Rfam assigns this 69-nucleotide RNA sequence from Trypanosoma conorhini to the family "Trypanosomatid snoRNA TB10Cs4H2". The family's consensus secondary structure was predicted with WAR. NCBI's taxonomy places the organism under Eukaryota, Euglenozoa, Kinetoplastea, Trypanosomatidae, Trypanosoma.

[Rfam]
RNA sequence: ACGCCCCCGUCUAACACCCCGCGCUGUGGGUCCCAUUCCCGGCGGGGUGAUUUCAGGGGGCGGAGAGCC
Numbered sequence: 001a002c003g004c005c006c007c008c009g010u011c012u013a014a015c016a017c018c019c020c021g022c023g024c025u026g027u028g029g030g031u032c033c034c035a036u037u038c039c040c041g042g043c044g045g046g047g048u049g050a051u052u053u054c055a056g057g058g059g060g061c062g063g064a065g066a067g068c069c
Stems, first nucleotide, its partner, number of pairs: 002062007015049008